[Rfam]
RNA: pan motif
Organism: Terrilactibacillus tamarindi
Nucleotides: 094
Stems, first nucleotide, its partner, number of pairs: 002030002004027005010022002060090003063086003067082001069081003
Number, partner (000 for none) and nucleotide at each position: 001000a002030g003029g004027g005026c006025u007024g008023c009000a010022u011021u012000c013000a014000u015000u016000u017000a018000u019000a020000g021011a022010a023008g024007c025006g026005g027004c028000a029003c030002c031000a032000u033000g034000u035000g036000u037000u038000u039000g040000a041000u042000a043000a044000c045000a046000a047000a048000a049000c050000c051000c052000c053000a054000a055000a056000u057000a058000g059000u060090c061089u062088g063086c064085c065084a066000u067082g068000a069081u070080c071079c072000a073000g074000a075000g076000a077000a078000u079071g080070g081069a082067c083000u084065u085064g086063g087000a088062c089061a090060g091000a092000g093000g094000a